[Rfam]
RNA: leu/phe leader RNA from Lactococcus
Organism: Lactococcus allomyrinae
RNA sequence: AAUAUAAAUUAACAAAAGAGGAACUUGAAAUGACAUAUAAACAAUUUUCAUUGUUGUUGAUCAAGGUGGACCUACAUUAGCUAUCAAUUUGGCUAAAAUGUGUAGGUCCUGUUUGGCGAUAGUCAUUUCGAGGACCAGAGAGACGUCCUCAAGGACGUCUUUUU
Numbered sequence: 001a002a003u004a005u006a007a008a009u010u011a012a013c014a015a016a017a018g019a020g021g022a023a024c025u026u027g028a029a030a031u032g033a034c035a036u037a038u039a040a041a042c043a044a045u046u047u048u049c050a051u052u053g054u055u056g057u058u059g060a061u062c063a064a065g066g067u068g069g070a071c072c073u074a075c076a077u078u079a080g081c082u083a084u085c086a087a088u089u090u091g092g093c094u095a096a097a098a099u100g101u102g103u104a105g106g107u108c109c110u111g112u113u114u115g116g117c118g119a120u121a122g123u124c125a126u127u128u129c130g131a132g133g134a135c136c137a138g139a140g141a142g143a144c145g146u147c148c149u150c151a152a153g154g155a156c157g158u159c160u161u162u163u164u
Stems, first nucleotide, its partner, number of pairs: 029127006041054005068109002071106007078095005130150006